RAGATH-18 RNA: a 74-nucleotide sequence. The family's RNA type in Rfam is small RNA. About the family: Actinobacteria, Firmicutes, Fusobacteria, Thermotogae (1 example).
RNA sequence: CCUUUGGAGAGCUAUAUCAAACAAAAGUAGAUUACUAUUUAUAGUAUUCAAAAUUGGGUUCAAUGAACAAGGAA
Dot-bracket structure: ((((....(((((........(((.....((...((......))...))....)))))))).......))))..